The family of this 217-nucleotide sequence from Pseudomonas fluorescens is "PhrS". Rfam links the family to the GO term quorum sensing. The literature on the family includes a 2006 paper in Nucleic Acids Res by Livny et al., "Identification of 17 Pseudomonas aeruginosa sRNAs and prediction of sRNA-encoding genes in 10 diverse pathogens using the bioinformatic tool sRNAPredict2".

RNA sequence: UUAGCCCCAUCGCAACAGGGCAAGUGCAGGAGGCCAGUCAUGUUUUUCGACAAUGUGGUGAUCGCCGGAGUGCUGACAGUCGGCCUCAUGGUUCUGUUUUUUACCGGGUUUGGAUUUUUUAUCUGGAAAGACGCACAUAAGCGCAAAAAGCCUUAGGUCUUUCUGGACGCACGAGCACGCAAGGCAUUUUGGGCGACUUCGGUCGCCCUUUUUUUUG
Numbered sequence: 001u002u003a004g005c006c007c008c009a010u011c012g013c014a015a016c017a018g019g020g021c022a023a024g025u026g027c028a029g030g031a032g033g034c035c036a037g038u039c040a041u042g043u044u045u046u047u048c049g050a051c052a053a054u055g056u057g058g059u060g061a062u063c064g065c066c067g068g069a070g071u072g073c074u075g076a077c078a079g080u081c082g083g084c085c086u087c088a089u090g091g092u093u094c095u096g097u098u099u100u101u102u103a104c105c106g107g108g109u110u111u112g113g114a115u116u117u118u119u120u121a122u123c124u125g126g127a128a129a130g131a132c133g134c135a136c137a138u139a140a141g142c143g144c145a146a147a148a149a150g151c152c153u154u155a156g157g158u159c160u161u162u163c164u165g166g167a168c169g170c171a172c173g174a175g176c177a178c179g180c181a182a183g184g185c186a187u188u189u190u191g192g193g194c195g196a197c198u199u200c201g202g203u204c205g206c207c208c209u210u211u212u213u214u215u216u217g
Stems, first nucleotide, its partner, number of pairs: 010106001012104001055065003082093004175185002178183001191208007